[Rfam]
Overview: The family of this 92-nucleotide RNA from Pseudoxanthomonas suwonensis is "Xanthomonas sRNA sX7". It scores 62 bits against the family's covariance model.
RNA sequence: GGUAUCCGCUUCCCGCCGGAGCGCUGUCAGUGGCGUGACGGCGGGAAGCGGUUCUUGAAGGCCAGGAGGGCAGGCGCCAGGGACGGCGCACA
Numbered sequence: 001g002g003u004a005u006c007c008g009c010u011u012c013c014c015g016c017c018g019g020a021g022c023g024c025u026g027u028c029a030g031u032g033g034c035g036u037g038a039c040g041g042c043g044g045g046a047a048g049c050g051g052u053u054c055u056u057g058a059a060g061g062c063c064a065g066g067a068g069g070g071c072a073g074g075c076g077c078c079a080g081g082g083a084c085g086g087c088g089c090a091c092a
Stems, first nucleotide, its partner, number of pairs: 008049011021036004061071003074089005